[Rfam]
RNA sequence: GGGCAGGCGCCGUCGAGUCGCGAUGUUCGCGAGCCGGGGACCCAAUGAGUCCUCUGGGGUGUAUCCGUGGCCGAGCCGCGGUAGGGCGAAUCUUCCCGCCCGAACCCGUCAGCUAACCCGGUAGGCGGCACCGGAAGGAGUC
Numbered sequence: 001g002g003g004c005a006g007g008c009g010c011c012g013u014c015g016a017g018u019c020g021c022g023a024u025g026u027u028c029g030c031g032a033g034c035c036g037g038g039g040a041c042c043c044a045a046u047g048a049g050u051c052c053u054c055u056g057g058g059g060u061g062u063a064u065c066c067g068u069g070g071c072c073g074a075g076c077c078g079c080g081g082u083a084g085g086g087c088g089a090a091u092c093u094u095c096c097c098g099c100c101c102g103a104a105c106c107c108g109u110c111a112g113c114u115a116a117c118c119c120g121g122u123a124g125g126c127g128g129c130a131c132c133g134g135a136a137g138g139a140g141u142c
Stems, first nucleotide, its partner, number of pairs: 008127004018032005033122006043056002057107003065081004084101004
A member of the RNA family "c-di-AMP riboswitch aptamer (ydaO/yuaA leader)" from Dactylosporangium siamense, 142 nucleotides long. Gene Ontology terms of the family: cyclic-di-AMP binding and regulation of gene expression.